[Rfam]
RNA: mir-203 microRNA precursor family
Organism: Scyliorhinus torazame
RNA sequence: GCCCUGCGGAUCAAGUGGUCCUAAACAUUUCACAAUGUCGAUAGAGAACUGUUGAACUGUUUAGAACCACUCCACCAGGA
Numbered sequence: 001g002c003c004c005u006g007c008g009g010a011u012c013a014a015g016u017g018g019u020c021c022u023a024a025a026c027a028u029u030u031c032a033c034a035a036u037g038u039c040g041a042u043a044g045a046g047a048a049c050u051g052u053u054g055a056a057c058u059g060u061u062u063a064g065a066a067c068c069a070c071u072c073c074a075c076c077a078g079g080a
Stems, first nucleotide, its partner, number of pairs: 014071006021064002024061004029056004
Dot-bracket structure: .............((((((.((.((((.((((....................)))).)))).)).)))))).........